[Rfam]
RNA sequence: ACUCUCUCAGCUCUGCAUGGUCACACUUGAUACCACGCGUGUGGCUUUCGUAACCGGGAGAGAGAGGAAGGACCUCCUCGGGACCUCCGAGUGGCUUCACAGUGGCCACCCUUUUCUCGAGGGGUGCCACAGAU
Dot-bracket structure: .(((((((..(((.(...((((((((............)))))))).......).))).))))))).......(((((.(((......(..(((((.......)))))..)....))).)))))..........
Small nucleolar RNA SNORA64/SNORA10 family: a 134-nucleotide sequence from Enhydra lutris.
The family's consensus secondary structure is taken from published work.
Rfam links the family to the GO terms RNA processing and nucleolus.
Its Rfam clan is "SNORA64 clan".
About the family: This family belongs to the H/ACA class of small nucleolar RNAs (snoRNAs) which act as guides in the the modification of uridines to pseudouridines. This family includes the human snoRNAs U64 and ACA10 and mouse MBI-29.